The record is a 90-nucleotide RNA sequence from Paenibacillus popilliae, which matches "c-di-GMP-I riboswitch aptamer" in Rfam. The match comes from Rfam's covariance-model search (80 bits).
RNA sequence: AAACUUGAAAGGCAAACUUGUCGAAAGGCAAGGACGCAAAGCCUCGGGCCUAACUCUCCUUCAUGGAGCUAUGGCGGCCGGGUUGCCAUU
Numbered sequence: 001a002a003a004c005u006u007g008a009a010a011g012g013c014a015a016a017c018u019u020g021u022c023g024a025a026a027g028g029c030a031a032g033g034a035c036g037c038a039a040a041g042c043c044u045c046g047g048g049c050c051u052a053a054c055u056c057u058c059c060u061u062c063a064u065g066g067a068g069c070u071a072u073g074g075c076g077g078c079c080g081g082g083u084u085g086c087c088a089u090u
Base pairs, nucleotide, nucleotide: 012037013036017032018031019030020029021028022027040084041083042082043081045080046079047078048075049074050073056068057067058066